[Rfam]
RNA: FMN riboswitch aptamer (RFN element)
Nucleotides: 122
Base pairs, nucleotide, nucleotide: 004119005118006117007116008115009114010113017029018028019027031102032101033091034090035049036048037047038046044089045088052067053066054065072086073085074084075083093105094104095103
Number, partner (000 for none) and nucleotide at each position: 001000a002000u003000u004119g005118a006117u007116c008115u009114u010113c011000a012000g013000g014000g015000c016000g017029a018028g019027g020000u021000g022000a023000a024000a025000g026000u027019c028018c029017u030000c031102a032101c033091c034090g035049g036048c037047g038046g039000u040000u041000a042000u043000a044089g045088c046038c047037c048036g049035c050000g051000a052067g053066c054065c055000a056000a057000g058000a059000g060000u061000u062000c063000u064000u065054g066053g067052u068000u069000g070000a071000u072086u073085u074084g075083g076000u077000g078000a079000a080000a081000u082000u083075c084074c085073a086072a087000u088045g089044c090034c091033g092000a093105c094104a095103g096000u097000u098000a099000g100000a101032g102031u103095c104094u105093g106000g107000a108000u109000g110000g111000g112000a113010g114009a115008a116007g117006a118005u119004u120000u121000a122000u